[Rfam]
RNA: MIR1120/MIR1122 microRNA precursor family
RNA sequence: CUACUCCCUCUGUCCUAUAAUAUGAGAUCGUUUUGCAAGCUAAAACAGCUUGCAAAACGUUCUUAUAUUAUGGGACGGAUGGAGUAU
Numbered sequence: 001c002u003a004c005u006c007c008c009u010c011u012g013u014c015c016u017a018u019a020a021u022a023u024g025a026g027a028u029c030g031u032u033u034u035g036c037a038a039g040c041u042a043a044a045a046c047a048g049c050u051u052g053c054a055a056a057a058c059g060u061u062c063u064u065a066u067a068u069u070a071u072g073g074g075a076c077g078g079a080u081g082g083a084g085u086a087u
Base pairs, nucleotide, nucleotide: 003085004084005083007081009079010078011077013075014074015073016072017071019069020068021067022066023065024064025063026062027061029059030058031057032056033055034054035053036052037051038050039049040048041047